[Rfam]
RNA sequence: GGAUGACUGAUUUCUUCUGGUGUUUAGAGUCUUUUGCAAUUUCUAGCACCAUUUGAAAUCGGUUAUGA
Dot-bracket structure: ..(((.((((((((...(((((..((((.............)))).)))))...))))))))).))..
Numbered sequence: 001g002g003a004u005g006a007c008u009g010a011u012u013u014c015u016u017c018u019g020g021u022g023u024u025u026a027g028a029g030u031c032u033u034u035u036g037c038a039a040u041u042u043c044u045a046g047c048a049c050c051a052u053u054u055g056a057a058a059u060c061g062g063u064u065a066u067g068a
Stems, first nucleotide, its partner, number of pairs: 003066002005063001007062008018051005025045004